[Rfam]
RNA: Nitrogen stress-induced RNA 1
RNA sequence: UGGUAGAUGCACCCUGAUUUCUAACCCUCGGCCUGACGGUCGGGGGUUUUUUGU
Numbered sequence: 001u002g003g004u005a006g007a008u009g010c011a012c013c014c015u016g017a018u019u020u021c022u023a024a025c026c027c028u029c030g031g032c033c034u035g036a037c038g039g040u041c042g043g044g045g046g047u048u049u050u051u052u053g054u
Stems, first nucleotide, its partner, number of pairs: 002013003025046009